[Rfam]
RNA sequence: UCCACUGUGAGGUGGAAUCUGAAGGAAGUCUAAGGCAAAGUACUGCACCGAUGAACAAGAAGUAGCUAUAAGGCUGGAACUAACUGGAUAAGACUGCAUGACAAGUUAAAGUCCAACACUACUCGAAGUUACUUUCAGUAAAGCUAUCGGUGACAUGGUACGAAAGUUAAUAUC
Dot-bracket structure: ((((((....))))))...........(......((...(((((((((((...........((((((.....(((.(.(.((((.((((..((((........))))...)))).............)))).))..)))..)))))))))))...))))))....))......)